RNA sequence: CAUCGCUCUCCAGCUCCAUGCUAGACGUACAUUCAGUCAGUGUGGCGUUACAAUGAGCGGAAAUUGUCACUGUUCCUAAAAACAAUUGCUAGUCUCUGUAUGAGCUAAUGAUCACCUGGUGGUUCAGACAUUU
Numbered sequence: 001c002a003u004c005g006c007u008c009u010c011c012a013g014c015u016c017c018a019u020g021c022u023a024g025a026c027g028u029a030c031a032u033u034c035a036g037u038c039a040g041u042g043u044g045g046c047g048u049u050a051c052a053a054u055g056a057g058c059g060g061a062a063a064u065u066g067u068c069a070c071u072g073u074u075c076c077u078a079a080a081a082a083c084a085a086u087u088g089c090u091a092g093u094c095u096c097u098g099u100a101u102g103a104g105c106u107a108a109u110g111a112u113c114a115c116c117u118g119g120u121g122g123u124u125c126a127g128a129c130a131u132u133u
Base pairs, nucleotide, nucleotide: 003060004059005058006057007056008055012049013048014047016045017044018043019042020041021040025037026036085112086111087110088109090107091106092105094104095103096102